Shown here is a 122-nucleotide sequence from Dickeya dadantii, a member of the family "tp2". NCBI's taxonomy places the organism under Bacteria, Pseudomonadati, Gammaproteobacteria, Pectobacteriaceae, Dickeya dadantii. A search with the family's covariance model found it, with a score of 82 bits.
[Rfam]
RNA sequence: UGUAUUCCUUAUCUGUUUCUAAUCAGUGGAUUUGUCUGGAGCCUGUCUUCCUGCGUUCUGUUCCUGCCGGAGAAAGCGCAGGAAGACAGGCCCUUCGUCUUGUUGCCGCACACGGCCGCCAG
Numbered sequence: 001u002g003u004a005u006u007c008c009u010u011a012u013c014u015g016u017u018u019c020u021a022a023u024c025a026g027u028g029g030a031u032u033u034g035u036c037u038g039g040a041g042c043c044u045g046u047c048u049u050c051c052u053g054c055g056u057u058c059u060g061u062u063c064c065u066g067c068c069g070g071a072g073a074a075a076g077c078g079c080a081g082g083a084a085g086a087c088a089g090g091c092c093c094u095u096c097g098u099c100u101u102g103u104u105g106c107c108g109c110a111c112a113c114g115g116c117c118g119c120c121a122g
Base pairs, nucleotide, nucleotide: 002106003105004104022098024097026095038094039093041091042090043089044088045087046086047085050082051081052080053079054078056076057075059073